[Rfam]
RNA sequence: UACAACACCCAUUAAAGGAGUAGUUCCCCACUCCAGAGUUAUUUUACCAUAUUCUGAAUUC
Number, nucleotide and partner (000 for none) at each position: 001u000002a000003c000004a000005a000006c000007a000008c000009c000010c000011a000012u000013u000014a000015a000016a000017g045018g044019a043020g042021u041022a040023g039024u038025u037026c036027c000028c000029c000030a000031c000032u000033c000034c000035a000036g026037a025038g024039u023040u022041a021042u020043u019044u018045u017046a000047c000048c000049a000050u000051a000052u000053u000054c000055u000056g000057a000058a000059u000060u000061c000
Rfam assigns this 61-nucleotide RNA sequence from Arachis hypogaea to the family "Plastid-psbN 5UTR RNA". It scores 68 bits against the family's covariance model. From the family's description: Plastid psbN is a non-coding RNA (ncRNA) recognised in plastids. It was reported as a conserved 11 stem-loop in the prime untranslated region (5UTR) of psbN genes. It has been reported that the motif is retained in a subset of mature transcripts in barley, which can suggests a possible role in transcript alternative 5 prime processing. By type it is a cis-regulatory element. On this family, see Richter et al., Plant Commun 2023: "Retrograde signaling in plants: A critical review focusing on the GUN pathway and beyond".